[Rfam]
Nucleotides: 099
Base pairs, nucleotide, nucleotide: 001097002096003095004094009089010088011087012086013085014084015083016082017081018080019079020078021077022076023075024074025073026072027071028070029069030068031067038059042055043054044053045052046051
Number, partner (000 for none) and nucleotide at each position: 001097a002096c003095u004094a005000u006000u007000g008000c009089a010088a011087a012086c013085u014084u015083a016082g017081u018080c019079u020078g021077g022076a023075c024074a025073c026072u027071a028070u029069a030068a031067a032000a033000g034000a035000a036000a037000g038059u039000c040000u041000g042055c043054a044053u045052g046051u047000a048000a049000g050000a051046a052045u053044a054043u055042g056000c057000u058000c059038a060000c061000c062000g063000u064000a065000a066000a067031u068030u069029u070028g071027u072026a073025g074024u075023g076022u077021u078020c079019a080018g081017a082016u083015u084014g085013a086012g087011u088010u089009u090000a091000u092000a093000g094004u095003g096002g097001u098000u099000g

The record is a 99-nucleotide RNA sequence from Dichanthelium oligosanthes, which matches "MIR1878 microRNA precursor family" in Rfam.
Rfam links the family to the GO terms miRNA-mediated post-transcriptional gene silencing and RISC complex.
The family's consensus secondary structure was predicted with RNAalifold.